[Rfam]
Description: Rfam assigns this 141-nucleotide RNA from Vigna angularis to the family "Small nucleolar RNA snoR136". The family's RNA type in Rfam is H/ACA-box small nucleolar RNA. On this family, see Chen and Wu, Nucleic Acids Res 2009: "Mining small RNA sequencing data: a new approach to identify small nucleolar RNAs in Arabidopsis". A search with the family's covariance model found it, with a score of 91 bits.
RNA sequence: AAGGCUUUAAUUUUCUUUGAGAUUUUCGCUUGCACUUGUUUCAAGUGUUUUGCGUAGUUUAAUUGAAGCCGAAAUGCGUGUUCCCCUCGCUAUCCAUUGUUGCAAUUUGAUGCUGCAUUUGGACGUCGGGGAACUAAAUCC
Numbered sequence: 001a002a003g004g005c006u007u008u009a010a011u012u013u014u015c016u017u018u019g020a021g022a023u024u025u026u027c028g029c030u031u032g033c034a035c036u037u038g039u040u041u042c043a044a045g046u047g048u049u050u051u052g053c054g055u056a057g058u059u060u061a062a063u064u065g066a067a068g069c070c071g072a073a074a075u076g077c078g079u080g081u082u083c084c085c086c087u088c089g090c091u092a093u094c095c096a097u098u099g100u101u102g103c104a105a106u107u108u109g110a111u112g113c114u115g116c117a118u119u120u121g122g123a124c125g126u127c128g129g130g131g132a133a134c135u136a137a138a139u140c141c
Base pairs, nucleotide, nucleotide: 003070004069005068008065009064010063011062012061018056019055027054028053029052032049034048035047080134081133082132083131084130085129086128088125089124093123094122095121096120102113103112104111
Dot-bracket structure: ..(((..(((((.....((.......(((..(.((...........)))..)))))....)))))..))).........(((((((.((...((((.....(((......)))......))))))..))))))).......